[Rfam]
RNA sequence: GAUAUUUUUGGUCUCUCGAAUACGCUUUGCUGGAAGUGUAUUCAAUCCACCCAGUGGUGCUUCCUUUUCAAGAGGUUGGUACUGAACGACUCGGGAAAAGGCAGAAAACCUGCAAGCAGGAAAUCUGUCAAGA
Numbered sequence: 001g002a003u004a005u006u007u008u009u010g011g012u013c014u015c016u017c018g019a020a021u022a023c024g025c026u027u028u029g030c031u032g033g034a035a036g037u038g039u040a041u042u043c044a045a046u047c048c049a050c051c052c053a054g055u056g057g058u059g060c061u062u063c064c065u066u067u068u069c070a071a072g073a074g075g076u077u078g079g080u081a082c083u084g085a086a087c088g089a090c091u092c093g094g095g096a097a098a099a100g101g102c103a104g105a106a107a108a109c110c111u112g113c114a115a116g117c118a119g120g121a122a123a124u125c126u127g128u129c130a131a132g133a
Stems, first nucleotide, its partner, number of pairs: 001013003018043006025036004048132001050095002053091003056083002059080003063075004100129006
A member of the RNA family "Group II catalytic intron D1-D4-2" from Maribellus comscasis, 133 nucleotides long.